Rfam assigns this 355-nucleotide sequence from Clostridium celatum to the family "transfer-messenger RNA". Rfam's curators write: Bacterial tmRNA, also known as 10Sa RNA or SsrA, is named for its dual tRNA and mRNA-like properties. For this family Rfam cites "Phylogenetic analysis of tmRNA secondary structure" (Williams and Bartel, RNA, 1996). It is annotated as a non-coding RNA gene. Lineage of the source: Bacteria > Bacillati > Bacillota > Clostridiaceae > Clostridium celatum.
[Rfam]
RNA sequence: GGGGGCGUUUUGGCUUCGACGGGGGUGUGAUGGGUUUGAUAAGCGGGCCGAGGGAAGCAUGUGACCUCGAUAAUCAGGUAUGCACUAAAUAUAAACGCAGAAGACAAUUUUGCAUUAGCAGCUUAAUAUAGCUUGCUCAUCAGUCCAGGAUGCCUACGUCUUGGGUAGCUGGUGUCAUUGAAGUAGGGAACGAAGUCUAGCAAAGCUUUGAGCUAGAGGGGUAUUUAUGAAGCUAGGGAAUUAGGAGUUUGUUUGUGAGCGAACUAAGGACCGAAAUUUUAGUCACAAACUACGCUCGUAGAAAGUCAGGCUGGUCUGCUUUCGGACAGGGGUUCGAUACCCCUCGCCUCCACCA
Numbered sequence: 001g002g003g004g005g006c007g008u009u010u011u012g013g014c015u016u017c018g019a020c021g022g023g024g025g026u027g028u029g030a031u032g033g034g035u036u037u038g039a040u041a042a043g044c045g046g047g048c049c050g051a052g053g054g055a056a057g058c059a060u061g062u063g064a065c066c067u068c069g070a071u072a073a074u075c076a077g078g079u080a081u082g083c084a085c086u087a088a089a090u091a092u093a094a095a096c097g098c099a100g101a102a103g104a105c106a107a108u109u110u111u112g113c114a115u116u117a118g119c120a121g122c123u124u125a126a127u128a129u130a131g132c133u134u135g136c137u138c139a140u141c142a143g144u145c146c147a148g149g150a151u152g153c154c155u156a157c158g159u160c161u162u163g164g165g166u167a168g169c170u171g172g173u174g175u176c177a178u179u180g181a182a183g184u185a186g187g188g189a190a191c192g193a194a195g196u197c198u199a200g201c202a203a204a205g206c207u208u209u210g211a212g213c214u215a216g217a218g219g220g221g222u223a224u225u226u227a228u229g230a231a232g233c234u235a236g237g238g239a240a241u242u243a244g245g246a247g248u249u250u251g252u253u254u255g256u257g258a259g260c261g262a263a264c265u266a267a268g269g270a271c272c273g274a275a276a277u278u279u280u281a282g283u284c285a286c287a288a289a290c291u292a293c294g295c296u297c298g299u300a301g302a303a304a305g306u307c308a309g310g311c312u313g314g315u316c317u318g319c320u321u322u323c324g325g326a327c328a329g330g331g332g333u334u335c336g337a338u339a340c341c342c343c344u345c346g347c348c349u350c351c352a353c354c355a
Stems, first nucleotide, its partner, number of pairs: 001351007020324008029315001031314001033312008044298005049069005057083006114137001116135003138174006144165008153188003196217006204234006236272002241267004247260003251290004255284001328344005